The record is a 600-nucleotide part of an RNA from Endocarpon pusillum, which matches "Eukaryotic small subunit ribosomal RNA" in Rfam. Taxonomically the source falls in Endocarpon pusillum (Eukaryota, Opisthokonta, Dikarya, Eurotiomycetes). On this family, see Yusupov et al., Science 2001: "Crystal structure of the ribosome at 5.5 A resolution". Its Rfam clan is "SSU clan". The family's consensus secondary structure is taken from published work. A search with the family's covariance model found it, with a score of 1771 bits.
RNA sequence: UACCUGGUUGAUUCUGCCAGUAGUCAUAUGCUUGUCUCAAAGAUUAAGCCAUGCAUGUCUAAGUAUAAGCAAUCUAUACUGUGAAACUGCGAAUGGCUCAUUAAAUCAGUUAUAGUUUAUUUGAUAGUACCUUUACCUGGAUAACCGUGGUAAUUCUAGAGCUAAUACAUGCCAAAAACCCCGACUCCGGAAGGGGUGUAUUUAUUAGAUAAAAAACCAAUGCCCUUCGGGGCUCCUUGGUGAUUCAUGAUAACUUAACGAAUCGCAUGGCCUUGCGCCGGCGAUGGUUCAUUCAAAUUUCUGCCCUAUCAACUUUCGAUGGUAGGAUAGUGGCCUACCAUGGUCUCAACGGGUAACGGGGAAUUAGGGUUCUAUUCCGGAGAGGGAGCCUGAGAAACGGCUACCACAUCCAAGGAAGGCAGCAGGCGCGCAAAUUACCCAAUCCCAACACGGGGAGGUAGUGACAAUACAUACUGAUACAGGGCUCUUUCGGGUCUUGUAAUUGGAAUGAGUACAAUCUAAAUCCCUUAACGAGGAACAAUUGGAGGGCAAGUCUGGUGCCAGCAGCCGCGGUAAUUCCAGCUCCAAUAGCGUAUAUUA
Number, nucleotide and partner (000 for none) at each position: 001u000002a000003c000004c020005u019006g018007g017008u016009u000010g000011a000012u000013u000014c000015u000016g008017c007018c006019a005020g004021u000022a599023g598024u597025c000026a596027u595028a594029u593030g592031c591032u590033u000034g470035u469036c000037u467038c000039a000040a000041a462042g429043a000044u000045u000046a000047a000048g427049c426050c425051a000052u424053g423054c422055a000056u000057g090058u089059c000060u000061a000062a088063g087064u086065a000066u000067a000068a000069g082070c081071a000072a000073u000074c000075u000076a000077u000078a000079c000080u000081g070082u069083g000084a000085a000086a064087c063088u062089g058090c057091g000092a000093a000094u000095g000096g000097c382098u381099c380100a000101u000102u000103a000104a000105a000106u000107c303108a302109g301110u000111u000112a298113u297114a000115g000116u296117u295118u000119a000120u000121u000122u291123g290124a289125u000126a000127g000128u000129a000130c000131c000132u000133u000134u000135a000136c171137c000138u169139g168140g000141a000142u000143a000144a000145c161146c000147g000148u158149g157150g156151u000152a000153a000154u000155u000156c150157u149158a148159g000160a000161g145162c000163u000164a000165a000166u000167a000168c139169a138170u000171g136172c000173c000174a000175a000176a000177a000178a197179c196180c195181c194182c193183g000184a000185c190186u000187c000188c000189g000190g185191a000192a000193g182194g181195g180196g179197u178198g000199u000200a000201u000202u253203u252204a251205u250206u249207a248208g000209a000210u000211a000212a000213a000214a000215a000216a241217c240218c239219a238220a000221u000222g000223c232224c231225c230226u000227u000228c000229g000230g225231g224232g223233c000234u000235c000236c000237u000238u219239g218240g217241u216242g000243a000244u000245u000246c000247a000248u207249g206250a205251u204252a203253a202254c000255u000256u000257a000258a000259c000260g000261a000262a000263u284264c283265g282266c281267a000268u280269g279270g278271c277272c000273u000274u000275g000276c000277g271278c270279c269280g268281g266282c265283g264284a263285u000286g000287g000288u000289u124290c123291a122292u000293u000294c000295a117296a116297a113298u112299u000300u000301c109302u108303g107304c000305c353306c352307u351308a000309u000310c000311a000312a344313c343314u342315u000316u000317c000318g000319a341320u340321g339322g338323u337324a336325g335326g334327a000328u000329a000330g000331u000332g000333g000334c326335c325336u324337a323338c322339c321340a320341u319342g314343g313344u312345c000346u000347c000348a000349a000350c000351g307352g306353g305354u000355a000356a000357c379358g378359g377360g376361g372362a371363a370364u369365u000366a000367g000368g000369g364370u363371u362372c361373u000374a000375u000376u360377c359378c358379g357380g099381a098382g097383a000384g405385g404386g000387a402388g401389c400390c000391u000392g000393a000394g000395a000396a000397a000398c000399g000400g389401c388402u387403a000404c385405c384406a000407c418408a000409u416410c415411c000412a000413a000414g000415g410416a409417a000418g407419g000420c000421a000422g054423c053424a052425g050426g049427c048428g000429c042430g000431c000432a000433a000434a000435u460436u000437a459438c458439c457440c000441a000442a000443u455444c454445c453446c452447a000448a000449c000450a000451c000452g446453g445454g444455g443456a000457g439458g438459u437460a435461g000462u041463g000464a000465c000466a000467a037468u000469a035470c034471a000472u000473a000474c000475u505476g504477a503478u501479a500480c499481a498482g497483g496484g495485c494486u493487c492488u000489u000490u000491c000492g487493g486494g485495u484496c483497u482498u481499g480500u479501a478502a000503u477504u476505g475506g000507a000508a000509u000510g000511a000512g532513u531514a529515c000516a528517a000518u000519c000520u000521a000522a000523a000524u000525c000526c000527c000528u516529u514530a000531a513532c512533g000534a000535g000536g000537a000538a000539c000540a000541a000542u588543u587544g586545g585546a584547g583548g000549g000550c000551a000552a000553g000554u000555c582556u581557g580558g579559u000560g000561c000562c000563a000564g571565c570566a000567g000568c000569c000570g565571c564572g000573g000574u000575a000576a000577u000578u000579c558580c557581a556582g555583c547584u546585c545586c544587a543588a542589u000590a032591g031592c030593g029594u028595a027596u026597a024598u023599u022600a000